Record summary: Rfam assigns this 104-nucleotide RNA from Solimonas aquatica to the family "Guanidine-I riboswitch aptamer". It scores 82 bits against the family's covariance model.
[Rfam]
RNA sequence: AGAGUUGGUGGCUAGGGUUCCGGCGCUAAAACAGUGCGCGACUGGUCCGAGAGCUGCCGGCCGGGCGCGAACCCGGUGCACGGCGGGAUAAAAACCCGGGAGAC
Number, nucleotide and partner (000 for none) at each position: 001a000002g000003a000004g000005u000006u000007g058008g057009u056010g055011g054012c053013u000014a000015g048016g047017g000018u000019u000020c045021c044022g042023g039024c038025g037026c036027u000028a000029a000030a000031a000032c000033a000034g000035u000036g026037c025038g024039c023040g000041a000042c022043u000044g021045g020046u000047c016048c015049g000050a000051g000052a000053g012054c011055u010056g009057c008058c007059g077060g000061c076062c075063g074064g073065g072066c000067g000068c000069g000070a000071a000072c065073c064074c063075g062076g061077u059078g000079c099080a000081c102082g000083g000084c000085g097086g096087g095088a000089u000090a000091a000092a000093a000094a000095c087096c086097c085098g000099g079100g000101a000102g081103a000104c000
Annotation: Rfam describes the family as follows. This family represents a conserved RNA structure found upstream of the ykkC and yxkD genes in Bacillus subtilis and related genes in other bacteria. The pairing is the family consensus, mapped onto this sequence.